[Rfam]
RNA sequence: CCCGAGGCUAGAGUCACAUCCUGACACCGAUCUGUUGUUUUGGUGUGCUAGAGCACUCGCAGAUUAAUUGCUCUCUGCUUAUUCAUUGGCUGCUGCUUCUCCAUCGCCCAGCCAAUCACCAGCUCAGAAACAGAU
Number, nucleotide and partner (000 for none) at each position: 001c000002c000003c059004g058005a057006g056007g054008c053009u052010a000011g000012a049013g048014u000015c047016a046017c045018a044019u043020c042021c000022u000023g039024a038025c037026a036027c000028c000029g000030a000031u000032c000033u000034g000035u000036u026037g025038u024039u023040u000041u000042g020043g019044u018045g017046u016047g015048c013049u012050a000051g000052a009053g008054c007055a000056c006057u005058c004059g003060c000061a000062g000063a000064u000065u000066a000067a000068u000069u000070g000071c000072u000073c127074u126075c000076u000077g123078c122079u121080u000081a000082u000083u000084c000085a116086u115087u114088g113089g112090c000091u110092g109093c000094u000095g107096c106097u000098u000099c000100u000101c000102c000103a000104u000105c000106g096107c095108c000109c092110a091111g000112c089113c088114a087115a086116u085117c000118a000119c000120c000121a079122g078123c077124u000125c000126a074127g073128a000129a000130a000131c000132a000133g000134a000135u000